[Rfam]
RNA sequence: GAUGCGUACCGCGACUGGCGCGCGGGGAGUGAACCCCGAGGGAGCGGUGUGCGGCCACCUUCCUCAGGUGGCGCCACGAGGUGCCGCCCGCCUGGGCACCCGGG
Numbered sequence: 001g002a003u004g005c006g007u008a009c010c011g012c013g014a015c016u017g018g019c020g021c022g023c024g025g026g027g028a029g030u031g032a033a034c035c036c037c038g039a040g041g042g043a044g045c046g047g048u049g050u051g052c053g054g055c056c057a058c059c060u061u062c063c064u065c066a067g068g069u070g071g072c073g074c075c076a077c078g079a080g081g082u083g084c085c086g087c088c089c090g091c092c093u094g095g096g097c098a099c100c101c102g103g104g
Stems, first nucleotide, its partner, number of pairs: 003053010015041002017092004024037004081099005
Dot-bracket structure: ..((((((((((..(([[[[...((((......))))..))..))))))))))...........................(((((...]]]]..))))).....
The record is a 104-nucleotide RNA sequence from Streptomyces inhibens, which matches "ZMP/ZTP riboswitch aptamer (pfl RNA motif)" in Rfam. Lineage of the source: Bacteria > Bacillati > Kitasatosporales > Streptomycetaceae > Streptomyces. The family has 185 seed sequences and 3,295 matches in Rfam 15.1.